[Rfam]
RNA sequence: AACCACUGAUGACCUUUCUAUUUUUUUCUGACACCUCGUAUGAGCACUGCCUAGCAGUGCUUGAUUAUGAAUUAUAGUCUGAGGUUC
Numbered sequence: 001a002a003c004c005a006c007u008g009a010u011g012a013c014c015u016u017u018c019u020a021u022u023u024u025u026u027u028c029u030g031a032c033a034c035c036u037c038g039u040a041u042g043a044g045c046a047c048u049g050c051c052u053a054g055c056a057g058u059g060c061u062u063g064a065u066u067a068u069g070a071a072u073u074a075u076a077g078u079c080u081g082a083g084g085u086u087c
Stems, first nucleotide, its partner, number of pairs: 001086004046058005
Notes:
A member of the RNA family "Small nucleolar RNA SNORD60" from Electrophorus electricus, 87 nucleotides long. It is annotated as a C/D-box small nucleolar RNA. The family has 22 seed sequences and 825 matches in Rfam 15.1. The literature on the family includes a 2002 paper in Mol Cell Biol by Galardi et al., "Purified box C/D snoRNPs are able to reproduce site-specific 2'-O-methylation of target RNA in vitro".